Rfam assigns this 69-nucleotide sequence from Thauera terpenica to the family "int-alpA RNA". NCBI's taxonomy places the organism under Bacteria, Pseudomonadota, Betaproteobacteria, Thauera, Thauera terpenica. About the family: Acidobacteria (1 example), Planctomycetes (1 example), Proteobacteria.

[Rfam]
RNA sequence: GCCGCCCCUACCUCGACGGAGGGAAAAGCCGGACACCUUCACCCGGCUGGCGCGGCACCCAAACGAAGG
Numbered sequence: 001g002c003c004g005c006c007c008c009u010a011c012c013u014c015g016a017c018g019g020a021g022g023g024a025a026a027a028g029c030c031g032g033a034c035a036c037c038u039u040c041a042c043c044c045g046g047c048u049g050g051c052g053c054g055g056c057a058c059c060c061a062a063a064c065g066a067a068g069g
Base pairs, nucleotide, nucleotide: 001056002055003054004053005052007050008049011022012021013020014019028047029046030045031044032043036069037068038067039066040065
The family's RNA type in Rfam is small RNA.